The record is a 316-nucleotide RNA from a Hyphomonadaceae bacterium, which matches "permuted transfer-messenger RNA" in Rfam.
RNA sequence: GGCGAUAGAGAUUGCGUGGAAUAAGCGGAUCGGACCCGGGGGCAGUUCCCGGCGGCUCCACCAUUUCCAUGAUGACCAUGCAUCGACGGAAUGUGCCAUUCGAGGCUCAGCUCCCGAAAUAUUGGUCAUGCCGGCAAUUCCAUGCCGGGCUCCGCGCGGAUGGUAUCGUUGAUCAUGCGCAAGCGGAGAUGUUUGGGGGCCGAAACAGGCUCGACGGACGUCUAAAGACGUGGAUUUCGCCCGGAUGGCUCCGACAAACGCCAUUUCAAUAGUUGCCAACGACAACUAUGCUGAAGAGGGUCUUCUGGCUGCGUAA
Numbered sequence: 001g002g003c004g005a006u007a008g009a010g011a012u013u014g015c016g017u018g019g020a021a022u023a024a025g026c027g028g029a030u031c032g033g034a035c036c037c038g039g040g041g042g043c044a045g046u047u048c049c050c051g052g053c054g055g056c057u058c059c060a061c062c063a064u065u066u067c068c069a070u071g072a073u074g075a076c077c078a079u080g081c082a083u084c085g086a087c088g089g090a091a092u093g094u095g096c097c098a099u100u101c102g103a104g105g106c107u108c109a110g111c112u113c114c115c116g117a118a119a120u121a122u123u124g125g126u127c128a129u130g131c132c133g134g135c136a137a138u139u140c141c142a143u144g145c146c147g148g149g150c151u152c153c154g155c156g157c158g159g160a161u162g163g164u165a166u167c168g169u170u171g172a173u174c175a176u177g178c179g180c181a182a183g184c185g186g187a188g189a190u191g192u193u194u195g196g197g198g199g200c201c202g203a204a205a206c207a208g209g210c211u212c213g214a215c216g217g218a219c220g221u222c223u224a225a226a227g228a229c230g231u232g233g234a235u236u237u238c239g240c241c242c243g244g245a246u247g248g249c250u251c252c253g254a255c256a257a258a259c260g261c262c263a264u265u266u267c268a269a270u271a272g273u274u275g276c277c278a279a280c281g282a283c284a285a286c287u288a289u290g291c292u293g294a295a296g297a298g299g300g301u302c303u304u305c306u307g308g309c310u311g312c313g314u315a316a
Base pairs, nucleotide, nucleotide: 001241002240003239004238005237014231015230016229017228026220027219030217031216032215036052037051038050039049040048053202054201055200056199057198058197059196242253243252244251245250
It is one of the family's seed sequences. The family's consensus secondary structure is taken from published work.